[Rfam]
Overview: This 115-nucleotide RNA sequence from Xanthomonas campestris belongs to the Rfam family "Glycine riboswitch aptamer".
RNA sequence: CAACACAACUCUGGAGAGACCGGUUCACUCCGGCGCCGAAGGGGCACGGAACGCAGGCAGGCCACAGGCCAGGCCGCGUUCUUAAACUCUCAGGCAAAAGGACAGAGGGGCGCGA
Numbered sequence: 001c002a003a004c005a006c007a008a009c010u011c012u013g014g015a016g017a018g019a020c021c022g023g024u025u026c027a028c029u030c031c032g033g034c035g036c037c038g039a040a041g042g043g044g045c046a047c048g049g050a051a052c053g054c055a056g057g058c059a060g061g062c063c064a065c066a067g068g069c070c071a072g073g074c075c076g077c078g079u080u081c082u083u084a085a086a087c088u089c090u091c092a093g094g095c096a097a098a099a100g101g102a103c104a105g106a107g108g109g110g111c112g113c114g115a
Stems, first nucleotide, its partner, number of pairs: 006110001009107005020033004035095003038091002042089003048082007

Source information
Lineage of the source: Bacteria > Pseudomonadota > Gammaproteobacteria > Lysobacteraceae > Xanthomonas campestris pv. campestris.